[Rfam]
RNA sequence: GGAGUCACUUGAUAUAGCCUCUCCUAGGCUUUGUCUGUAUGUGGAGGACGGAGACAUAGCCUAGAAUAGGUUAGGUCAGGGCUCGUAA
Numbered sequence: 001g002g003a004g005u006c007a008c009u010u011g012a013u014a015u016a017g018c019c020u021c022u023c024c025u026a027g028g029c030u031u032u033g034u035c036u037g038u039a040u041g042u043g044g045a046g047g048a049c050g051g052a053g054a055c056a057u058a059g060c061c062u063a064g065a066a067u068a069g070g071u072u073a074g075g076u077c078a079g080g081g082c083u084c085g086u087a088a
Base pairs, nucleotide, nucleotide: 012076013075015073016072017071018070019069020068027061028060029059030058032056033055034054035053036052

Shown here is an 88-nucleotide RNA from Microctonus hyperodae, a member of the family "mir-282 microRNA precursor family". A search with the family's covariance model found it, with a score of 69 bits. The literature on the family includes a 2009 paper in BMC Genomics by Li et al., "Direct sequencing and expression analysis of a large number of miRNAs in Aedes aegypti and a multi-species survey of novel mosquito miRNAs". NCBI's taxonomy places the organism under Eukaryota, Pterygota, Eumetabola, Euphorinae, Microctonus. Rfam 15.1 lists 136 matches to the family in 128 species. Pairs were carried over by alignment from the consensus structure, which was predicted with RNAalifold.